This 576-nucleotide part of an RNA from Trypanosoma brucei belongs to the Rfam family "Eukaryotic large subunit ribosomal RNA". The family's consensus secondary structure is taken from published work. The source organism's lineage runs through Eukaryota, Discoba, Trypanozoon, Trypanosoma brucei and Trypanosoma brucei brucei.
[Rfam]
RNA sequence: GGAGAUUGCGAGUAAAAGAUUAUCCGCGCAAAGCGGAGGCAGUCCGUUUUUUUCUGGGUCUGCCGUUCGGUGGCAUGUGCUUGGCGCUGCCAUCUCAGCACACAACAUUUAUGAUAUUAAUAUUAUUAUUAUUAUUAUCGUAUAAUGCUGUUAUACACACGUGUAUAUGUGUUUGUGAGAUUGUGAAGGGAUCUCGCAGGCAUCGUGAGGGAAGUAUGGGGUAGUACGAGAGGAACUCCCAUGCCGUGCCUCUGGUUUCUGGAGUUUGUCGAAGGGCAAGUGCUCCGACGCUAUCGCACGGUGGUUCUCGGCUGAACGCCUCUAAGCCAGAAACCAGUCCCAAGACCGGGUGCCCGUAAAAGCAAAAAGCAAAAAGAGAAAGUAUAGGGAAAAAUAUAGUGUACAUGUAAAGUGUGUUCCAUAUAUAUAUAUAUAUUCAUUUAUAUAAGUCUGUGGGCACGGCUUGUGUGUAUCUCUAUAUGGCUCACUGACGUUGAAGGGAAUGCAAAAGUGUAUAAUAAUACUACAUAUGCGUGUGUAUAUUUAUUACUUUGUAUUUCUGUGUGAGACGUGUUU
Numbered sequence: 001g002g003a004g005a006u007u008g009c010g011a012g013u014a015a016a017a018g019a020u021u022a023u024c025c026g027c028g029c030a031a032a033g034c035g036g037a038g039g040c041a042g043u044c045c046g047u048u049u050u051u052u053u054c055u056g057g058g059u060c061u062g063c064c065g066u067u068c069g070g071u072g073g074c075a076u077g078u079g080c081u082u083g084g085c086g087c088u089g090c091c092a093u094c095u096c097a098g099c100a101c102a103c104a105a106c107a108u109u110u111a112u113g114a115u116a117u118u119a120a121u122a123u124u125a126u127u128a129u130u131a132u133u134a135u136u137a138u139c140g141u142a143u144a145a146u147g148c149u150g151u152u153a154u155a156c157a158c159a160c161g162u163g164u165a166u167a168u169g170u171g172u173u174u175g176u177g178a179g180a181u182u183g184u185g186a187a188g189g190g191a192u193c194u195c196g197c198a199g200g201c202a203u204c205g206u207g208a209g210g211g212a213a214g215u216a217u218g219g220g221g222u223a224g225u226a227c228g229a230g231a232g233g234a235a236c237u238c239c240c241a242u243g244c245c246g247u248g249c250c251u252c253u254g255g256u257u258u259c260u261g262g263a264g265u266u267u268g269u270c271g272a273a274g275g276g277c278a279a280g281u282g283c284u285c286c287g288a289c290g291c292u293a294u295c296g297c298a299c300g301g302u303g304g305u306u307c308u309c310g311g312c313u314g315a316a317c318g319c320c321u322c323u324a325a326g327c328c329a330g331a332a333a334c335c336a337g338u339c340c341c342a343a344g345a346c347c348g349g350g351u352g353c354c355c356g357u358a359a360a361a362g363c364a365a366a367a368a369g370c371a372a373a374a375a376g377a378g379a380a381a382g383u384a385u386a387g388g389g390a391a392a393a394a395u396a397u398a399g400u401g402u403a404c405a406u407g408u409a410a411a412g413u414g415u416g417u418u419c420c421a422u423a424u425a426u427a428u429a430u431a432u433a434u435a436u437u438c439a440u441u442u443a444u445a446u447a448a449g450u451c452u453g454u455g456g457g458c459a460c461g462g463c464u465u466g467u468g469u470g471u472a473u474c475u476c477u478a479u480a481u482g483g484c485u486c487a488c489u490g491a492c493g494u495u496g497a498a499g500g501g502a503a504u505g506c507a508a509a510a511g512u513g514u515a516u517a518a519u520a521a522u523a524c525u526a527c528a529u530a531u532g533c534g535u536g537u538g539u540a541u542a543u544u545u546a547u548u549a550c551u552u553u554g555u556a557u558u559u560c561u562g563u564g565u566g567a568g569a570c571g572u573g574u575u576u
Stems, first nucleotide, its partner, number of pairs: 199354006209341004214244008245300005253293003260287005265280006302336003310328004360552003364548002562576001564574002